[Rfam]
RNA sequence: CUGCUGUUGUGUCUUAUGGCUUUUUAUUCCUACGUGAUGAGAGCCGUGCUCAUGUAGGGGUCAAAGCCACUAAACACACAGUGU
Dot-bracket structure: .((((((.((((.(..(((((((..((((((((((((............)))))))))))).)))))))..).)))))))))).
Rfam assigns this 84-nucleotide sequence from Clupea harengus to the family "mir-135 microRNA precursor family". The literature on the family includes a 2002 paper in Curr Biol by Lagos-Quintana et al., "Identification of tissue-specific microRNAs from mouse". The organism belongs to Clupea, within Eukaryota.